[Rfam]
RNA sequence: AAUGCCUCCGAAUAACCGGAAGGUCUCGUAGCAAAACCACACCGUCUGGUUCAGACAGAGGCAUACAACAAUCUGGAUCUCUUUUUAGAGGGUACGGAACUUCUAUUUCUGUGCUCCUUUUAUAGUUUGGAUUCGAAUAUUU
Number, nucleotide and partner (000 for none) at each position: 001a000002a000003u063004g062005c061006c060007u059008c058009c000010g000011a000012a000013u000014a051015a050016c049017c048018g047019g046020a045021a000022g000023g042024u041025c000026u000027c000028g000029u000030a000031g000032c000033a000034a000035a000036a000037c000038c000039a000040c000041a024042c023043c000044g000045u020046c019047u018048g017049g016050u015051u014052c000053a000054g000055a000056c000057a000058g008059a007060g006061g005062c004063a003064u000065a000066c000067a000068a000069c000070a000071a000072u000073c000074u135075g134076g133077a132078u131079c130080u000081c000082u000083u124084u000085u122086u000087a000088g119089a118090g117091g000092g116093u000094a112095c111096g110097g109098a108099a107100c000101u000102u000103c000104u000105a000106u000107u099108u098109c097110u096111g095112u094113g000114c000115u000116c092117c090118u089119u088120u000121u000122a085123u000124a083125g000126u000127u000128u000129g000130g079131a078132u077133u076134c075135g074136a000137a000138u000139a000140u000141u000142u000
RNA: Small nucleolar RNA snoR138
Organism: Salix dunnii